This 186-nucleotide RNA from Noviherbaspirillum saxi belongs to the Rfam family "Manganese Mn2+ riboswitch aptamer (yybP-ykoY)".
[Rfam]
RNA sequence: CCCGGCGUCAUUGGGGAGUAGCCGCCCUCCGAAAGCGAGAGGGGCUUGCGUCAACAGACUUAAUCCGCGUCAUCGGCGCCGGGUUAUGGCGUAAGCGAUCCAGGUUUGGCGAGACCUUUGACCAUGCCGCCUCAGCUUCGGGCCGGAAGGCGCAUGGUCAUUGGUAUUCAUCCGGCCCUGGAGUUU
Number, nucleotide and partner (000 for none) at each position: 001c000002c000003c000004g000005g000006c000007g000008u000009c000010a000011u000012u000013g000014g000015g000016g000017a000018g000019u000020a000021g000022c000023c000024g000025c000026c042027c041028u040029c000030c000031g000032a000033a000034a000035g000036c000037g000038a000039g000040a028041g027042g026043g000044g096045c095046u094047u093048g092049c091050g090051u089052c088053a087054a000055c000056a000057g000058a000059c000060u000061u086062a085063a084064u083065c082066c081067g080068c000069g000070u000071c000072a000073u000074c000075g000076g000077c000078g000079c000080c067081g066082g065083g064084u063085u062086a061087u053088g052089g051090c050091g049092u048093a047094a046095g045096c044097g185098a184099u183100c180101c000102a000103g000104g000105u000106u000107u000108g000109g000110c000111g000112a000113g000114a000115c000116c000117u000118u000119u000120g000121a000122c000123c000124a000125u000126g000127c000128c000129g000130c000131c000132u000133c000134a000135g000136c000137u000138u000139c000140g000141g000142g000143c000144c000145g000146g000147a000148a000149g000150g000151c000152g000153c000154a000155u000156g000157g000158u000159c000160a000161u000162u000163g000164g000165u000166a000167u000168u000169c000170a000171u000172c000173c000174g000175g000176c000177c000178c000179u000180g100181g000182a000183g099184u098185u097186u000
Rfam links the family to the GO term manganese ion binding. Rfam 15.1 lists 1,126 matches to the family in 1,062 species.